[Rfam]
RNA sequence: AGGGGGCAGUUCUAAAAUUGAUAUGCCAAUCCCGAUACAAUCUUCCUAAAUUAAAAUUUGUCUGUUUCCUGCUUCUGGUGCUUCUAGAGGGUACCACGAGCCUCAUUAGACAAAAACAAA
Numbered sequence: 001a002g003g004g005g006g007c008a009g010u011u012c013u014a015a016a017a018u019u020g021a022u023a024u025g026c027c028a029a030u031c032c033c034g035a036u037a038c039a040a041u042c043u044u045c046c047u048a049a050a051u052u053a054a055a056a057u058u059u060g061u062c063u064g065u066u067u068c069c070u071g072c073u074u075c076u077g078g079u080g081c082u083u084c085u086a087g088a089g090g091g092u093a094c095c096a097c098g099a100g101c102c103u104c105a106u107u108a109g110a111c112a113a114a115a116a117c118a119a120a
Base pairs, nucleotide, nucleotide: 002032003031005027006026007025008024010023058113059112060111071101072100073099074098076096077095078094080092081091082090
The record is a 120-nucleotide RNA sequence from Rhynchospora breviuscula, which matches "Small nucleolar RNA snoR104" in Rfam. The source organism's lineage runs through Eukaryota, Tracheophyta, Magnoliopsida, Cyperaceae and Rhynchospora. It is annotated as an H/ACA-box small nucleolar RNA. Its family is annotated with nucleolus and RNA processing in the Gene Ontology. Pairs were carried over by alignment from the consensus structure, which was predicted with WAR.